[Rfam]
RNA sequence: UUACGAUAAAGGUAAACCCUGAGUGAUCAGGGGACGCAAAGUAACAGGGUCUUGAAACUCACAAGGAUGUAGUUUGCAAAGACUUGCUUGCAAUAAAAAAGAUAGCCUUACUGCCGAA
Numbered sequence: 001u002u003a004c005g006a007u008a009a010a011g012g013u014a015a016a017c018c019c020u021g022a023g024u025g026a027u028c029a030g031g032g033g034a035c036g037c038a039a040a041g042u043a044a045c046a047g048g049g050u051c052u053u054g055a056a057a058c059u060c061a062c063a064a065g066g067a068u069g070u071a072g073u074u075u076g077c078a079a080a081g082a083c084u085u086g087c088u089u090g091c092a093a094u095a096a097a098a099a100a101g102a103u104a105g106c107c108u109u110a111c112u113g114c115c116g117a118a
Stems, first nucleotide, its partner, number of pairs: 012037002017032006040112004046108003049103005
Dot-bracket structure: ...........((...((((((....))))))...))..((((..((((((((.............................................)))))..)))))))......
Rfam assigns this 118-nucleotide sequence from Candidatus Brocadia sinica to the family "c-di-GMP-I riboswitch aptamer". It scores 54 bits against the family's covariance model. Its family is annotated with cyclic-di-GMP binding in the Gene Ontology. The source organism's lineage runs through Bacteria, Planctomycetota, Candidatus Brocadiales, Candidatus Brocadia and Candidatus Brocadia sinica.